A member of the RNA family "manA RNA", 196 nucleotides long. The base pairs follow the family's consensus structure, which is taken from published work. From the family's description: manA RNA has been located in 5'UTR regions of genes of mannose or fructose metabolism. Has been proposed as a cis-regulatory element and as a riboswitch candidate for his complex secondary structure.

RNA sequence: UACCUGACUGAUCAUCGGGUAUGGGAGUGACUGAAUAAACUUACUGGCAACCGCUAGUUAAGGUGAUGAGACACAGGUGGUGCUGCUGAUGCGAGUCAGAACCGACCAACCAGUCGGGUCUCAGGCAAGGAAUGUAUUUUACACUGUAGUAAUGCCCAUUCCUUUGUUGGUAUACAGUAAUCCAACCUCCCCCCUU
Numbered sequence: 001u002a003c004c005u006g007a008c009u010g011a012u013c014a015u016c017g018g019g020u021a022u023g024g025g026a027g028u029g030a031c032u033g034a035a036u037a038a039a040c041u042u043a044c045u046g047g048c049a050a051c052c053g054c055u056a057g058u059u060a061a062g063g064u065g066a067u068g069a070g071a072c073a074c075a076g077g078u079g080g081u082g083c084u085g086c087u088g089a090u091g092c093g094a095g096u097c098a099g100a101a102c103c104g105a106c107c108a109a110c111c112a113g114u115c116g117g118g119u120c121u122c123a124g125g126c127a128a129g130g131a132a133u134g135u136a137u138u139u140u141a142c143a144c145u146g147u148a149g150u151a152a153u154g155c156c157c158a159u160u161c162c163u164u165u166g167u168u169g170g171u172a173u174a175c176a177g178u179a180a181u182c183c184a185a186c187c188u189c190c191c192c193c194c195u196u
Base pairs, nucleotide, nucleotide: 001021002020003019004018005017006016023191024190025189026188027187030064031063043058044057045056046055047054048053067123068122069121070120071119072118074085075084076083078112079111080110081109086099087098088097089096090095102117103116104115105114106113128163129162130161131160132159133158134157139152140151141150142149144177145176146175147174166186167185168184169183170182